[Rfam]
Record summary: Rfam assigns this 88-nucleotide RNA from Paenibacillus montanisoli to the family "BsrC". Pairs were carried over by alignment from the consensus structure, which was predicted with CMfinder. It is annotated as a small RNA.
RNA sequence: AUGCACGAAAGCAACGAAAGCCCUAACCUCUCUAACGUCCUUGCGGUUCCUCGACCGCGCCAGUGUGAAUCCGUGUUCCUUCAAGCAG
Numbered sequence: 001a002u003g004c005a006c007g008a009a010a011g012c013a014a015c016g017a018a019a020g021c022c023c024u025a026a027c028c029u030c031u032c033u034a035a036c037g038u039c040c041u042u043g044c045g046g047u048u049c050c051u052c053g054a055c056c057g058c059g060c061c062a063g064u065g066u067g068a069a070u071c072c073g074u075g076u077u078c079c080u081u082c083a084a085g086c087a088g
Base pairs, nucleotide, nucleotide: 036067037066040063041062042059043058044057045056046055047054048053
The 301 nucleotide sequence from Kouji Nakamura has been trimmed to a highly conserved ~85 nucleotide long core to form this family. For this family Rfam cites "Novel small RNA-encoding genes in the intergenic regions of Bacillus subtilis" (Saito et al., Gene, 2008).